[Rfam]
Annotation:
Shown here is a 93-nucleotide RNA from Carex littledalei, a member of the family "mir-395 microRNA precursor family". Rfam links the family to the GO terms RISC complex and miRNA-mediated post-transcriptional gene silencing. Rfam's curators write: mir-395 was identified in both Arabidopsis thaliana and Oryza sativa computationally and was later experimentally verified. mir-395 is thought to target mRNAs coding for ATP sulphurylases. The mature sequence is excised from the 3' arm of the hairpin. Lineage of the source: Eukaryota > Petrosaviidae > commelinids > Cyperoideae > Carex subgen. Euthyceras. For this family Rfam cites "Computational Identification of Plant MicroRNAs and Their Targets, Including a Stress-Induced miRNA" (Jones-Rhoades and Bartel, Mol Cell, 2004).
RNA sequence: UUGUCCCCUGGAGUUCCCUUUAAGCACUUCAUUAAGGCCUAAAAUGUUGUACCCAGGCCAUUAUGAAGUGUUUGGGGGAACUCUCGGUGGCAC
Dot-bracket structure: ....(.((..((((((((((.(((((((((((.(.(((..................))).).)))))))))))))))))))))..)).)....